Shown here is a 475-nucleotide RNA from Halococcus morrhuae, a member of the family "Archaeal RNase P". Lineage of the source: Archaea > Halobacteria > Halobacteriales > Halococcaceae > Halococcus. The family is grouped with related families in Rfam's "RNaseP clan". It is annotated as a ribozyme. On this family, see Frank and Pace, Annu Rev Biochem 1998: "Ribonuclease P: unity and diversity in a tRNA processing ribozyme".
RNA sequence: GGCAGAGAGAGCCCGGCCACCGCGGCGUACCGACAGGCACACACGUGCCAGCGGGUACGCACGCGAGGAAAGUCCCCCCACCGCCGGGCAGGUGACCGGGGAAACCCCGGGACGGGAGACCGUCGGCGCUGGAACAGCAACGAGACCCCUCCACCCGACCGAUGAGGCGCGGGCGGUGGCAUCGCCACCGUCUCGGCGCGAGCGGCACGGGGUGCAUCGUGCGCCCCGAAGCGAGCGGGCACCGCCCGCGACGCAGCCGCGAGCGUGCGAACCCGACGCAAAACGGCCACUGGUCGGACAAAGCAACGGGGAGCUAACCCGCCGAGGGAUGAGGGUGGAGAACGGAUGGAACGGCGAAUCCUCACCGGUGCAAGUCCACGCCACGCGGAUCGGCCGCACGGUAGCCCGGCAGGGACGUGGACGCUCAGCCGAAUGCCGGGGCGAACAGAAGGGGGCUUACUCCUCUCAGCCAUGU
Numbered sequence: 001g002g003c004a005g006a007g008a009g010a011g012c013c014c015g016g017c018c019a020c021c022g023c024g025g026c027g028u029a030c031c032g033a034c035a036g037g038c039a040c041a042c043a044c045g046u047g048c049c050a051g052c053g054g055g056u057a058c059g060c061a062c063g064c065g066a067g068g069a070a071a072g073u074c075c076c077c078c079c080a081c082c083g084c085c086g087g088g089c090a091g092g093u094g095a096c097c098g099g100g101g102a103a104a105c106c107c108c109g110g111g112a113c114g115g116g117a118g119a120c121c122g123u124c125g126g127c128g129c130u131g132g133a134a135c136a137g138c139a140a141c142g143a144g145a146c147c148c149c150u151c152c153a154c155c156c157g158a159c160c161g162a163u164g165a166g167g168c169g170c171g172g173g174c175g176g177u178g179g180c181a182u183c184g185c186c187a188c189c190g191u192c193u194c195g196g197c198g199c200g201a202g203c204g205g206c207a208c209g210g211g212g213u214g215c216a217u218c219g220u221g222c223g224c225c226c227c228g229a230a231g232c233g234a235g236c237g238g239g240c241a242c243c244g245c246c247c248g249c250g251a252c253g254c255a256g257c258c259g260c261g262a263g264c265g266u267g268c269g270a271a272c273c274c275g276a277c278g279c280a281a282a283a284c285g286g287c288c289a290c291u292g293g294u295c296g297g298a299c300a301a302a303g304c305a306a307c308g309g310g311g312a313g314c315u316a317a318c319c320c321g322c323c324g325a326g327g328g329a330u331g332a333g334g335g336u337g338g339a340g341a342a343c344g345g346a347u348g349g350a351a352c353g354g355c356g357a358a359u360c361c362u363c364a365c366c367g368g369u370g371c372a373a374g375u376c377c378a379c380g381c382c383a384c385g386c387g388g389a390u391c392g393g394c395c396g397c398a399c400g401g402u403a404g405c406c407c408g409g410c411a412g413g414g415a416c417g418u419g420g421a422c423g424c425u426c427a428g429c430c431g432a433a434u435g436c437c438g439g440g441g442c443g444a445a446c447a448g449a450a451g452g453g454g455g456c457u458u459a460c461u462c463c464u465c466u467c468a469g470c471c472a473u474g475u
Stems, first nucleotide, its partner, number of pairs: 001471003005467005010461002012440006021065004070458003074455005079370004087395003091366005096110005111124005125361002130357001132355001146345002149340008166273002374422007381414002